[Rfam]
RNA sequence: GGUACCUUUAAUUCAGUCCAGAGAGGCUGACAAGGACAACGGAUAUUUAUCCUAGGCGGGGUAUGCCUUAUUUUGCUAUACCUAUCAACCCAGGAUAAUUAGAAGAGGUUUAUUGUCAUGUCUGGCAAUAAACCUUUUUUUAU
Numbered sequence: 001g002g003u004a005c006c007u008u009u010a011a012u013u014c015a016g017u018c019c020a021g022a023g024a025g026g027c028u029g030a031c032a033a034g035g036a037c038a039a040c041g042g043a044u045a046u047u048u049a050u051c052c053u054a055g056g057c058g059g060g061g062u063a064u065g066c067c068u069u070a071u072u073u074u075g076c077u078a079u080a081c082c083u084a085u086c087a088a089c090c091c092a093g094g095a096u097a098a099u100u101a102g103a104a105g106a107g108g109u110u111u112a113u114u115g116u117c118a119u120g121u122c123u124g125g126c127a128a129u130a131a132a133c134c135u136u137u138u139u140u141u142a143u
Stems, first nucleotide, its partner, number of pairs: 005035004013030006045100001047098007055090001103138016
This 143-nucleotide sequence from Niallia endozanthoxylica belongs to the Rfam family "PyrR binding site". From the family's description: This family represents the PyrR binding site and terminator structure. It scores 60 bits against the family's covariance model. It is annotated as a cis-regulatory element.